[Rfam]
RNA sequence: GGGUGAUUACCCAAGCCUGGUUGAAGGGAGCAGUCUUGAAAACUGCCAGGGCUUCACGGCCCCGUGGGGGUUCGAAUCCCUCAUCACCCG
Numbered sequence: 001g002g003g004u005g006a007u008u009a010c011c012c013a014a015g016c017c018u019g020g021u022u023g024a025a026g027g028g029a030g031c032a033g034u035c036u037u038g039a040a041a042a043c044u045g046c047c048a049g050g051g052c053u054u055c056a057c058g059g060c061c062c063c064g065u066g067g068g069g070g071u072u073c074g075a076a077u078c079c080c081u082c083a084u085c086a087c088c089c090g
Stems, first nucleotide, its partner, number of pairs: 001089007010028003030046005066082005
RNA: tRNA
Organism: Mycoplasmopsis synoviae